[Rfam]
RNA sequence: GGAUCGGGAGGCCGUCAUUGGGACGAUGGCCGGGAAUUGAUCGAACCAAGCCCUCUCGGAUGGCCGCGGCGCUGAGCCCCGACAGCGCGCGCG
Numbered sequence: 001g002g003a004u005c006g007g008g009a010g011g012c013c014g015u016c017a018u019u020g021g022g023a024c025g026a027u028g029g030c031c032g033g034g035a036a037u038u039g040a041u042c043g044a045a046c047c048a049a050g051c052c053c054u055c056u057c058g059g060a061u062g063g064c065c066g067c068g069g070c071g072c073u074g075a076g077c078c079c080c081g082a083c084a085g086c087g088c089g090c091g092c093g
Base pairs, nucleotide, nucleotide: 002042003041004040005039010031011030012029013028014027015026016025065093066092067091068090070087071086072085073084074083
RNA: Rhodo-rpoB RNA
Organism: Roseovarius tolerans